[Rfam]
RNA sequence: ACAGUACAAACUGAGCAGGCGAUGAACCUAAGCGUUCGUGGGGCCGGGCCGCUUUGGCGGCAGCAGAUCGUAAACACAGCAUCUGUGGGACAGUG
Numbered sequence: 001a002c003a004g005u006a007c008a009a010a011c012u013g014a015g016c017a018g019g020c021g022a023u024g025a026a027c028c029u030a031a032g033c034g035u036u037c038g039u040g041g042g043g044c045c046g047g048g049c050c051g052c053u054u055u056g057g058c059g060g061c062a063g064c065a066g067a068u069c070g071u072a073a074a075c076a077c078a079g080c081a082u083c084u085g086u087g088g089g090a091c092a093g094u095g
Base pairs, nucleotide, nucleotide: 010094011093012092013091016089018045019044020043022039023038024037025036026035027034048061049060050059051058052057063086064085065084066083067082068081

This 95-nucleotide RNA belongs to the Rfam family "NiCo (Nickel/Cobalt) riboswitch aptamer".
Rfam links the family to the GO terms metal ion homeostasis and cobalt ion binding.
On this family, see Furukawa et al., Mol Cell 2015: "Bacterial riboswitches cooperatively bind Ni(2+) or Co(2+) ions and control expression of heavy metal transporters".
The family is grouped with related families in Rfam's "NiCo_riboswitches".